Rfam assigns this 147-nucleotide sequence from Paenibacillus sp. 32O-W to the family "c-di-AMP riboswitch aptamer (ydaO/yuaA leader)". A search with the family's covariance model found it, with a score of 78 bits. Its family is annotated with regulation of gene expression and cyclic-di-AMP binding in the Gene Ontology.

RNA sequence: AUAAGUAAUAAGCUUAAUUUCCGGUUAUGGACCGGAAAGCGGGGGAACCAAGUCUUCCGGGGCGAAUCGUGCCGCUUCAUGCGGCCGUAGGGAACCAUCUAUCCCGAGCCCGUCAGCUAACCUCGUCAGCUUUGGAUGGGUCGAAUA
Numbered sequence: 001a002u003a004a005g006u007a008a009u010a011a012g013c014u015u016a017a018u019u020u021c022c023g024g025u026u027a028u029g030g031a032c033c034g035g036a037a038a039g040c041g042g043g044g045g046a047a048c049c050a051a052g053u054c055u056u057c058c059g060g061g062g063c064g065a066a067u068c069g070u071g072c073c074g075c076u077u078c079a080u081g082c083g084g085c086c087g088u089a090g091g092g093a094a095c096c097a098u099c100u101a102u103c104c105c106g107a108g109c110c111c112g113u114c115a116g117c118u119a120a121c122c123u124c125g126u127c128a129g130c131u132u133u134g135g136a137u138g139g140g141u142c143g144a145a146u147a
Stems, first nucleotide, its partner, number of pairs: 011131004018038009039126006049059001060111003068087002090105004
Dot-bracket structure: ..........((((...(((((((((...)))))))))((((((....(.........)(((.....((................))..((((........))))...))).........)))))).))))................